[Rfam]
RNA: Small nucleolar RNA J33
Organism: Cicer arietinum
RNA sequence: CCGUCAGGGGGAUGAUGUAUUAUUAUAGCGCCCUUAAGAUGCUUGCCUUUCUUGAUUCAGCAUCUGAGAUGGACGUAAGACAG
Numbered sequence: 001c002c003g004u005c006a007g008g009g010g011g012a013u014g015a016u017g018u019a020u021u022a023u024u025a026u027a028g029c030g031c032c033c034u035u036a037a038g039a040u041g042c043u044u045g046c047c048u049u050u051c052u053u054g055a056u057u058c059a060g061c062a063u064c065u066g067a068g069a070u071g072g073a074c075g076u077a078a079g080a081c082a083g
Stems, first nucleotide, its partner, number of pairs: 001083001003081003006076001